[Rfam]
RNA sequence: CAGCAGGAUUUAGACUACAACAGAGCUGCUUUGUGCUGUGUUGUCGUUCCCCCUGCUCAAAGUAAAGUUGUUUCUUAUCUAUCCCUGACUGCUUUUCACUUGUAGCAGCCCAGGGACGCUUGGUCUCACACAU
Numbered sequence: 001c002a003g004c005a006g007g008a009u010u011u012a013g014a015c016u017a018c019a020a021c022a023g024a025g026c027u028g029c030u031u032u033g034u035g036c037u038g039u040g041u042u043g044u045c046g047u048u049c050c051c052c053c054u055g056c057u058c059a060a061a062g063u064a065a066a067g068u069u070g071u072u073u074c075u076u077a078u079c080u081a082u083c084c085c086u087g088a089c090u091g092c093u094u095u096u097c098a099c100u101u102g103u104a105g106c107a108g109c110c111c112a113g114g115g116a117c118g119c120u121u122g123g124u125c126u127c128a129c130a131c132a133u
Base pairs, nucleotide, nucleotide: 003056004055005054006053007052017044018043019042020041021040022039024037025036026035084114085113086112087111089108090107091106092105
Rfam assigns this 133-nucleotide RNA sequence from Chrysochloris asiatica to the family "Small nucleolar RNA SNORA63". It scores 128 bits against the family's covariance model. E3 belongs to the H/ACA class of snoRNAs and is involved in the processing of eukaryotic pre-rRNA and has regions of complementarity to 18S rRNA. E3 is encoded in introns in the gene for protein synthesis initiation factor 4AII. The family has 8 seed sequences and 1,279 matches in Rfam 15.1.